[Rfam]
RNA: U1 spliceosomal RNA
RNA sequence: AUUCUUACCUGGCGAAGGAGAUAGCACGGUCACCAAGGGGGCUUUCCCAGGGUGAGGCUUGUCCAUUGCAUCCCAGAUGGGCUGACCCCUGUGAUUUCCCCAAAUGUGGGAAACUCGACUGCGAAAUUUGUGGUAAUGGGCGACUGCGUUCACGCCCUCCCCUU
Dot-bracket structure: ...........(((..(((((...(.(..........).)..))))).((((.(.(((.((((............)))).)))..))))).((((((.((.......)).))).)))..)))...............(((.((..(((....)))..)).))).